[Rfam]
RNA sequence: AGAAAUAUACUACAGCCAUAGCAGAAAUGUUCAUGUCGCGGUCCCUGUCAGAUUCCAACAAAUCUGCUAAAUUCUGCU
Numbered sequence: 001a002g003a004a005a006u007a008u009a010c011u012a013c014a015g016c017c018a019u020a021g022c023a024g025a026a027a028u029g030u031u032c033a034u035g036u037c038g039c040g041g042u043c044c045c046u047g048u049c050a051g052a053u054u055c056c057a058a059c060a061a062a063u064c065u066g067c068u069a070a071a072u073u074c075u076g077c078u
Stems, first nucleotide, its partner, number of pairs: 015042003020078007028038002049066006

A member of the RNA family "Mammalian CPEB3 ribozyme" from Crocodylus porosus, 78 nucleotides long. The organism belongs to Crocodylus, within Eukaryota. About the family: The mammalian CPEB3 ribozyme is a self cleaving RNA located in the second intron of the CPEB3 gene which belongs to a family of genes regulating messenger RNA polyadenylation. It scores 44 bits against the family's covariance model.